Record summary
A member of the RNA family "Small nucleolar RNA R38", 75 nucleotides long.
RNA sequence: UUGAGCUGAGGAUGAUUUAAGUUAUCCCUGUCUGAAAUGACACUUUCUGAAGAGUCAUGGUUUACUGAGGCUCGA
Numbered sequence: 001u002u003g004a005g006c007u008g009a010g011g012a013u014g015a016u017u018u019a020a021g022u023u024a025u026c027c028c029u030g031u032c033u034g035a036a037a038u039g040a041c042a043c044u045u046u047c048u049g050a051a052g053a054g055u056c057a058u059g060g061u062u063u064a065c066u067g068a069g070g071c072u073c074g075a
Stems, first nucleotide, its partner, number of pairs: 001075007
Its family is annotated with nucleolus and RNA processing in the Gene Ontology. snoR38 is a C/D box small nucleolar RNA conserved across yeast, human, Arabidopsis and rice. It is encoded in the intron of elongation factor-1 gamma in both pombe and cerevisiae. snoR38 guides the methylation of 2'-O-ribose sites in 28S rRNA. The family's RNA type in Rfam is C/D-box small nucleolar RNA.